[Rfam]
RNA sequence: UGGGACCUUCGGGGCCCUCUAACCACAGCGGACCUACGGGGCCGCAUACAAGCAAACGGAAGACAGAGA
Numbered sequence: 001u002g003g004g005a006c007c008u009u010c011g012g013g014g015c016c017c018u019c020u021a022a023c024c025a026c027a028g029c030g031g032a033c034c035u036a037c038g039g040g041g042c043c044g045c046a047u048a049c050a051a052g053c054a055a056a057c058g059g060a061a062g063a064c065a066g067a068g069a
Stems, first nucleotide, its partner, number of pairs: 002017003006014003028045004033040002
RNA: L2-Alphaproteobacteria ribosomal protein leader
Organism: Sulfitobacter undariae